[Rfam]
RNA sequence: GCGGUCGUGGUGAAGUAGGUUAACACAUCGGGUUGUGGCUCCGACAUGCGCGGGUUCGAGUCCCGUCGAUCGCC
Numbered sequence: 001g002c003g004g005u006c007g008u009g010g011u012g013a014a015g016u017a018g019g020u021u022a023a024c025a026c027a028u029c030g031g032g033u034u035g036u037g038g039c040u041c042c043g044a045c046a047u048g049c050g051c052g053g054g055u056u057c058g059a060g061u062c063c064c065g066u067c068g069a070u071c072g073c074c
Stems, first nucleotide, its partner, number of pairs: 001073007010026003028044005050066005
Shown here is a 74-nucleotide RNA sequence from Erysipelothrix inopinata, a member of the family "tRNA".
Rfam describes the family as follows. Transfer RNA (tRNA) molecules are approximately 80 nucleotides in length.
Lineage of the source: Bacteria > Bacillati > Bacillota > Erysipelotrichaceae > Erysipelothrix.
Rfam classes the family as a transfer RNA.
The match comes from Rfam's covariance-model search (58 bits).
Gene Ontology term of the family: triplet codon-amino acid adaptor activity.